nrdJ RNA: an 83-nucleotide RNA from Streptomyces resistomycificus. By type it is a small RNA. The match comes from Rfam's covariance-model search (79 bits).
RNA sequence: ACCUGUUGCGGGCCGUAGUGAGGGUGUCCGCAGCACCAGACAGAACACCGUGUCCCGGGAACAUCGGGGCACUUCAGGGCGUU
Numbered sequence: 001a002c003c004u005g006u007u008g009c010g011g012g013c014c015g016u017a018g019u020g021a022g023g024g025u026g027u028c029c030g031c032a033g034c035a036c037c038a039g040a041c042a043g044a045a046c047a048c049c050g051u052g053u054c055c056c057g058g059g060a061a062c063a064u065c066g067g068g069g070c071a072c073u074u075c076a077g078g079g080c081g082u083u
Base pairs, nucleotide, nucleotide: 004035005034006033007032008031009030010029011028012025013024014023016021050072051071052070053069054068055067056066057065